[Rfam]
RNA: mir-26 microRNA precursor family
Organism: Anser cygnoides
RNA sequence: CUGCCUCCCAGUGCAAGUAACCAAGAAUAGGCCAGCAGGAACGGAUACAGCCUAUCCUGGAUUACUUGAACCAGGUGACAG
Numbered sequence: 001c002u003g004c005c006u007c008c009c010a011g012u013g014c015a016a017g018u019a020a021c022c023a024a025g026a027a028u029a030g031g032c033c034a035g036c037a038g039g040a041a042c043g044g045a046u047a048c049a050g051c052c053u054a055u056c057c058u059g060g061a062u063u064a065c066u067u068g069a070a071c072c073a074g075g076u077g078a079c080a081g
Base pairs, nucleotide, nucleotide: 002080003079005077007075008074011071012070014068015067016066017065018064019063020062022060024058025057027055028054029053030052031051032050